[Rfam]
RNA sequence: UGCAGGGGACGGCUCCUGCAUUCAGAGUUAUCGCCGGGACGACCCGG
Numbered sequence: 001u002g003c004a005g006g007g008g009a010c011g012g013c014u015c016c017u018g019c020a021u022u023c024a025g026a027g028u029u030a031u032c033g034c035c036g037g038g039a040c041g042a043c044c045c046g047g
Base pairs, nucleotide, nucleotide: 001020002019003018004017005016006015007014008013034047035046036045037044038043